[Rfam]
Rfam assigns this 123-nucleotide RNA from Gossypium mustelinum to the family "MIR7502 microRNA precursor family".
It scores 71 bits against the family's covariance model.
The base pairs follow the family's consensus structure, which was predicted with RNAalifold.
Its family is annotated with miRNA-mediated post-transcriptional gene silencing and RISC complex in the Gene Ontology.
RNA sequence: UGUUAAAAAUUCCAUUCAUUUUUACUAUUAAAAACAAAUCUCUAUAUGUCAGACAUGUAUCUAUUUAGUUAUUUCGUCAGCCACAUCAGUUUUUAACAGUAAAAAUGAAUGAAUUUUUUAAUA
Numbered sequence: 001u002g003u004u005a006a007a008a009a010u011u012c013c014a015u016u017c018a019u020u021u022u023u024a025c026u027a028u029u030a031a032a033a034a035c036a037a038a039u040c041u042c043u044a045u046a047u048g049u050c051a052g053a054c055a056u057g058u059a060u061c062u063a064u065u066u067a068g069u070u071a072u073u074u075c076g077u078c079a080g081c082c083a084c085a086u087c088a089g090u091u092u093u094u095a096a097c098a099g100u101a102a103a104a105a106u107g108a109a110u111g112a113a114u115u116u117u118u119u120a121a122u123a
Base pairs, nucleotide, nucleotide: 002122003121004120005119006118007117008116009115011113013111014110015109016108018106019105020104021103022102023101024100025099026098028096029095030094031093032092033091